SAM riboswitch aptamer (S box leader): a 108-nucleotide RNA from Clostridium cavendishii. Its Rfam clan is "SAM clan". Lineage of the source: Bacteria > Eubacteriales > Clostridiaceae > Clostridium > Clostridium cavendishii.

[Rfam]
RNA sequence: CUUUUAUCAAGAAUGGUGGAGGGACUGGCCCUUUGAAGCCUGGCAACAGCUAGCAGUCAUAAGCUAGAAUUGUGCUAAAUCCUGCAGAUUAAUAUCUGUACUUAAAGG
Numbered sequence: 001c002u003u004u005u006a007u008c009a010a011g012a013a014u015g016g017u018g019g020a021g022g023g024a025c026u027g028g029c030c031c032u033u034u035g036a037a038g039c040c041u042g043g044c045a046a047c048a049g050c051u052a053g054c055a056g057u058c059a060u061a062a063g064c065u066a067g068a069a070u071u072g073u074g075c076u077a078a079a080u081c082c083u084g085c086a087g088a089u090u091a092a093u094a095u096c097u098g099u100a101c102u103u104a105a106a107g108g
Stems, first nucleotide, its partner, number of pairs: 001108006013041001015040003021031003025084001027082002042076004047072002050067005080100001085098005